Shown here is a 110-nucleotide RNA sequence from Niallia nealsonii, a member of the family "TPP riboswitch aptamer (THI element)". The family's consensus secondary structure is taken from published work. Rfam links the family to the GO term thiamine pyrophosphate binding.
[Rfam]
RNA sequence: AAAUGAAUAAUCGGGAGCUUGUAGAAUCAGGCUGAGAGUAUGGAUAUGCUGCCAUAGACCGAAGGAACCUGUUGGAUAAUGCCAGCGCAGGGAGUGUAAACACACAUGUC
Numbered sequence: 001a002a003a004u005g006a007a008u009a010a011u012c013g014g015g016a017g018c019u020u021g022u023a024g025a026a027u028c029a030g031g032c033u034g035a036g037a038g039u040a041u042g043g044a045u046a047u048g049c050u051g052c053c054a055u056a057g058a059c060c061g062a063a064g065g066a067a068c069c070u071g072u073u074g075g076a077u078a079a080u081g082c083c084a085g086c087g088c089a090g091g092g093a094g095u096g097u098a099a100a101c102a103c104a105c106a107u108g109u110c
Stems, first nucleotide, its partner, number of pairs: 007097003011062004017032005039056005068091004072085004